[Rfam]
RNA sequence: CGGCGCCGGCCGGCGGCCCACGGCCCCCCAGCCAGGGGGGCUGAGGAAACUCCGCCCUCCCCGCGGCGGCCGGGCCCCGCAAGGGGCACGGGUGAAACCCGUGGCAACGGCACAGAAACGACACGGCCCCGGGGCGUGUCGAGGACGCGGCUAGGCCGCCCUGGCAACAGGGCGGCAGCAAACCGCAGAGGAACCCCGGGGAUGCGGUGAAACGGCCGCCCCCGGCGGAGCAAGGCCCCCGGGCGGUGAGGGCCGCGCGAAGCCCGGGGGGAGACCGCUUAGCCCAAUGCCGCCGAAGUACAGAAGGCGGGUUAUGGCCGGCGCCG
Dot-bracket structure: (((.(((((((((((((...(((((((((.....)))))))))....[[[.[[[[[((((.....[..((((((((((....)))))(((((.....)))))((...((((............((.((((((((............((..........................)).................))))))))...))........)))).)))))))))))...((.(..(((((.........].......)))))......).))............))))))...........]]]]]]]]..))))))).)))

Archaeal RNase P: a 326-nucleotide sequence from Aeropyrum pernix. The organism belongs to Aeropyrum pernix, within Archaea. Ribonuclease P (RNase P) is a ubiquitous endoribonuclease, found in archaea, bacteria and eukarya as well as chloroplasts and mitochondria. Its best characterised activity is the generation of mature 5'-ends of tRNAs by cleaving the 5'-leader elements of precursor-tRNAs. Cellular RNase Ps are ribonucleoproteins. Gene Ontology terms of the family: multimeric ribonuclease P complex, tRNA processing and ribonuclease P activity. It is annotated as a ribozyme. The family is grouped with related families in Rfam's "RNaseP clan".